[Rfam]
RNA sequence: ACUGCCCUGCAGAUGCGGAUUUGCGGCACCACGGGUGCAGCCGCCCUGCUGCGCCUGUGCCGUUGGGGCAGAGAGGAAGCGGCUAUUUCUACGCUCAGUGCUCAGAACCGUGGGCACUAAGAAUGGUUUGUAGCCGAACAUCA
Numbered sequence: 001a002c003u004g005c006c007c008u009g010c011a012g013a014u015g016c017g018g019a020u021u022u023g024c025g026g027c028a029c030c031a032c033g034g035g036u037g038c039a040g041c042c043g044c045c046c047u048g049c050u051g052c053g054c055c056u057g058u059g060c061c062g063u064u065g066g067g068g069c070a071g072a073g074a075g076g077a078a079g080c081g082g083c084u085a086u087u088u089c090u091a092c093g094c095u096c097a098g099u100g101c102u103c104a105g106a107a108c109c110g111u112g113g114g115c116a117c118u119a120a121g122a123a124u125g126g127u128u129u130g131u132a133g134c135c136g137a138a139c140a141u142c143a
Stems, first nucleotide, its partner, number of pairs: 003070007031058004081135003089126003094121002099116006

The record is a 143-nucleotide sequence from Bos grunniens, which matches "Small nucleolar RNA SNORA43" in Rfam. The match comes from Rfam's covariance-model search (121 bits). By type it is an H/ACA-box small nucleolar RNA. ACA43 is a member of the H/ACA class of snoRNA that guide the sites of modification of uridines to pseudouridines. Rfam links the family to the GO terms nucleolus and RNA processing. NCBI's taxonomy places the organism under Eukaryota, Mammalia, Artiodactyla, Ruminantia, Bos.